[Rfam]
RNA sequence: UAUUGGCCUAGUUAGGAGGCGAAGAUUAAUGGACCGAGUUUUGGUCUUCUUAGGGAUUUUGAGGGGACUCUUUGUUUUUGAUUGAUAGUCCUCCAAGCAGCCUUAGGACAUAA
Numbered sequence: 001u002a003u004u005g006g007c008c009u010a011g012u013u014a015g016g017a018g019g020c021g022a023a024g025a026u027u028a029a030u031g032g033a034c035c036g037a038g039u040u041u042u043g044g045u046c047u048u049c050u051u052a053g054g055g056a057u058u059u060u061g062a063g064g065g066g067a068c069u070c071u072u073u074g075u076u077u078u079u080g081a082u083u084g085a086u087a088g089u090c091c092u093c094c095a096a097g098c099a100g101c102c103u104u105a106g107g108a109c110a111u112a113a
Base pairs, nucleotide, nucleotide: 004021005020007018009016032046033045034044035043036042049107050106051105052104053103054102055101058097059096060095061094063093064092065091066090067089068088069087071085

Notes:
A member of the RNA family "Small nucleolar RNA U19" from Carpinus fangiana, 113 nucleotides long. Pairs were carried over by alignment from the consensus structure, which was predicted with WAR. The source organism's lineage runs through Eukaryota, Spermatophyta, eudicotyledons, Gunneridae and Carpinus.